[Rfam]
RNA: Nuclear RNase P
Organism: Hucho hucho
RNA sequence: GUGGGAGGAAGCUCAUUGUAGAGGUCACGUGCAGAGUGCUAGUCACUCAACCAAUCACCUUGGGGAAGGUCUGAGACAAGAGCCAGUCACUGCCCUAGCAGGGUAUCACCUGAUCUGGGUGAGUGAGUGCACAGAGAAUAUGGGCCAUUGUGAGCUGUCUUCACAGAAGAAACCAGCCAGUGCAGUUCUCCAGCACUGCUGGUGGAUGUGACCUCACUGGCUUGGAAACACUCAUGGCUGGCAUAUGAGUGCGAUGUGUGAGUUGGAGUACACCUCCAGAACCCAAUUCAGACUACUCUCCCCCCAC
Numbered sequence: 001g002u003g004g005g006a007g008g009a010a011g012c013u014c015a016u017u018g019u020a021g022a023g024g025u026c027a028c029g030u031g032c033a034g035a036g037u038g039c040u041a042g043u044c045a046c047u048c049a050a051c052c053a054a055u056c057a058c059c060u061u062g063g064g065g066a067a068g069g070u071c072u073g074a075g076a077c078a079a080g081a082g083c084c085a086g087u088c089a090c091u092g093c094c095c096u097a098g099c100a101g102g103g104u105a106u107c108a109c110c111u112g113a114u115c116u117g118g119g120u121g122a123g124u125g126a127g128u129g130c131a132c133a134g135a136g137a138a139u140a141u142g143g144g145c146c147a148u149u150g151u152g153a154g155c156u157g158u159c160u161u162c163a164c165a166g167a168a169g170a171a172a173c174c175a176g177c178c179a180g181u182g183c184a185g186u187u188c189u190c191c192a193g194c195a196c197u198g199c200u201g202g203u204g205g206a207u208g209u210g211a212c213c214u215c216a217c218u219g220g221c222u223u224g225g226a227a228a229c230a231c232u233c234a235u236g237g238c239u240g241g242c243a244u245a246u247g248a249g250u251g252c253g254a255u256g257u258g259u260g261a262g263u264u265g266g267a268g269u270a271c272a273c274c275u276c277c278a279g280a281a282c283c284c285a286a287u288u289c290a291g292a293c294u295a296c297u298c299u300c301c302c303c304c305c306a307c
Base pairs, nucleotide, nucleotide: 001307002306003305004304007301008300009299012262013261014260015259016258021061022060023059024058034048035047036046037045038044071291072290073289074288075287081239082238083237084236091105092104093103094102095101106122107121108120109119110118111117123235124234125233126232127231128230129229144221145220146219263279264278265277266276267275268274